[Rfam]
The record is a 57-nucleotide RNA sequence from Thalictrum thalictroides, which matches "Plastid-ndhJ 3UTR RNA" in Rfam. The literature on the family includes a 2023 paper in Plant Commun by Richter et al., "Retrograde signaling in plants: A critical review focusing on the GUN pathway and beyond". Taxonomically the source falls in Thalictrum (Eukaryota, Streptophyta, Magnoliopsida, Ranunculaceae). It scores 56 bits against the family's covariance model.
RNA sequence: UCAUGAACUUUGUACCAUGCACAUCAUUUAGAUGGGACCCAGAAAACAAUAUAGAAA
Number, nucleotide and partner (000 for none) at each position: 001u000002c000003a000004u000005g000006a000007a000008c000009u000010u000011u000012g000013u000014a000015c000016c000017a000018u000019g000020c036021a000022c034023a033024u032025c031026a000027u000028u000029u000030a000031g025032a024033u023034g022035g000036g020037a000038c000039c000040c000041a000042g000043a000044a000045a000046a000047c000048a000049a000050u000051a000052u000053a000054g000055a000056a000057a000
Source information
Rfam describes the family as follows. Plastid ndhJ is a non-coding RNA (ncRNA) present in plastids. Pairs were carried over by alignment from the consensus structure, which was predicted with LocARNA.